[Rfam]
RNA sequence: AGGCCCGCAGAGAGAGGCAGGGUCUGACCCGCAGCCUCUGUGGCAGCUGUUGAUUAGCUGUUGCCUCUCUCUUUUUCUCUA
Numbered sequence: 001a002g003g004c005c006c007g008c009a010g011a012g013a014g015a016g017g018c019a020g021g022g023u024c025u026g027a028c029c030c031g032c033a034g035c036c037u038c039u040g041u042g043g044c045a046g047c048u049g050u051u052g053a054u055u056a057g058c059u060g061u062u063g064c065c066u067c068u069c070u071c072u073u074u075u076u077c078u079c080u081a
Stems, first nucleotide, its partner, number of pairs: 009072012022059001024057004029052001032049004
Dot-bracket structure: ........((((((((((((.(.((((.(..((((..........))))..).)))).).)))))))))))).........